[Rfam]
Source information
The family of this 99-nucleotide sequence is "folP RNA". The family's RNA type in Rfam is cis-regulatory element. The family's consensus secondary structure is taken from published work.

RNA sequence: CACAUGGAGGAAAUGCCAUGGCGAUGGUUUUCAUCGGGCCCUAUUGAUGAUUAUUUCCCUGAUUAUCAAUCCGGUCGCGGAUCGGUUAUACUCCUCAAU
Numbered sequence: 001c002a003c004a005u006g007g008a009g010g011a012a013a014u015g016c017c018a019u020g021g022c023g024a025u026g027g028u029u030u031u032c033a034u035c036g037g038g039c040c041c042u043a044u045u046g047a048u049g050a051u052u053a054u055u056u057c058c059c060u061g062a063u064u065a066u067c068a069a070u071c072c073g074g075u076c077g078c079g080g081a082u083c084g085g086u087u088a089u090a091c092u093c094c095u096c097a098a099u
Stems, first nucleotide, its partner, number of pairs: 003020005022036006037076004043070011